[Rfam]
RNA sequence: UAUAAAGGAAGUCAAGCUAAACUCGCCACAUCGUGUGGCAACGCUUGACUGACCCGCAUCGUGCGGG
Dot-bracket structure: ..........(((((((.......(((((.....)))))...)))))))...(((((.....)))))
RNA: Bacillaceae-1 RNA
Organism: Lysinibacillus sp. 2017